Rfam assigns this 77-nucleotide RNA from Clostridium sp. CAG:226 to the family "Gut-1 RNA".
It scores 58 bits against the family's covariance model.
The source organism's lineage runs through Bacteria, Bacillota, Clostridia, Clostridiaceae and Clostridium.
RNA sequence: CGGUGAAAUCCUGCUUACGCAGGGUGAAAUUGCGCUGAAGCGCAGUGAAAUAUUGCUUGAGCAAUGUGAAAUCCGCC
Numbered sequence: 001c002g003g004u005g006a007a008a009u010c011c012u013g014c015u016u017a018c019g020c021a022g023g024g025u026g027a028a029a030u031u032g033c034g035c036u037g038a039a040g041c042g043c044a045g046u047g048a049a050a051u052a053u054u055g056c057u058u059g060a061g062c063a064a065u066g067u068g069a070a071a072u073c074c075g076c077c
Base pairs, nucleotide, nucleotide: 008025009024010023011022012021013020014019029046030045031044032043033042034041050067051066052065053064054063055062056061